RNA: L31-Actinobacteria ribosomal protein leader
Organism: Pseudonocardia oroxyli
RNA sequence: ACUGCUCCGGUUCACCCGCCAUCGCGGGACCCGGCGGCA
Numbered sequence: 001a002c003u004g005c006u007c008c009g010g011u012u013c014a015c016c017c018g019c020c021a022u023c024g025c026g027g028g029a030c031c032c033g034g035c036g037g038c039a
Base pairs, nucleotide, nucleotide: 003039004038005037007034008033009032010031015028016027017026018025019024